[Rfam]
RNA sequence: AAACAUGUGGUUCGCAACCAUCCCACAUAAAAAAACUAGGAGAGA
Numbered sequence: 001a002a003a004c005a006u007g008u009g010g011u012u013c014g015c016a017a018c019c020a021u022c023c024c025a026c027a028u029a030a031a032a033a034a035a036c037u038a039g040g041a042g043a044g045a
Base pairs, nucleotide, nucleotide: 006027007026008025009024010023016037
Dot-bracket structure: .....(((((.....[......))))).........]........
PreQ1 (pre queuosine) riboswitch aptamer: a 45-nucleotide RNA sequence from Lacticaseibacillus saniviri. About the family: This family is a bacterial riboswitch that binds to the metabolite preQ1, an intermediate in the biosynthesis of the modified nucleoside queuosine from GTP. One example of this riboswitch is located in the leader of the Bacillus subtilis ykvJKLM (queCDEF) operon which encodes four genes necessary for queuosine production. PreQ1 binding to the riboswitch aptamer is thought to induce premature transcription termination within the leader to down-regulate expression of these genes. Rfam links the family to the GO term queuosine biosynthetic process. NCBI's taxonomy places the organism under Bacteria, Bacillati, Bacillota, Lacticaseibacillus, Lacticaseibacillus saniviri. It scores 48 bits against the family's covariance model. The base pairs follow the family's consensus structure.